Shown here is a 76-nucleotide RNA sequence from Alligator sinensis, a member of the family "Mammalian CPEB3 ribozyme".

RNA sequence: GGUGGCAAGUUUGAAGCCAUAGCAAAAAUACUCCUGGUGCAGCUUGUCAGAUUCCCAUGAAUCUGCAAAUUCUACU
Number, nucleotide and partner (000 for none) at each position: 001g000002g000003u000004g000005g000006c000007a000008a000009g000010u000011u000012u000013g000014a000015a044016g043017c042018c000019a000020u000021a076022g075023c000024a073025a000026a071027a070028a000029u039030a038031c000032u000033c000034c000035u000036g000037g000038u030039g029040c000041a000042g017043c016044u015045u000046g000047u000048c065049a064050g063051a062052u061053u060054c059055c000056c000057a000058u000059g054060a053061a052062u051063c050064u049065g048066c000067a000068a000069a000070u027071u026072c000073u024074a000075c022076u021

It scores 40 bits against the family's covariance model. Lineage of the source: Eukaryota > Teleostomi > Euteleostomi > Dipnotetrapodomorpha > Alligator. Rfam's curators write: The mammalian CPEB3 ribozyme is a self cleaving RNA located in the second intron of the CPEB3 gene which belongs to a family of genes regulating messenger RNA polyadenylation. This ribozyme is highly conserved and found only in mammals.